[Rfam]
RNA sequence: CGAUAAGGUUAGGGGUUUCUAUCGGCCUCCAGCAGCAACGAUGGUUGUAGGCCGGCGGAAACUACUUGCUCUUGUCG
Dot-bracket structure: ....((((.(((((((((((.(((((((.(((............))).))))))).))))))).)))).))))....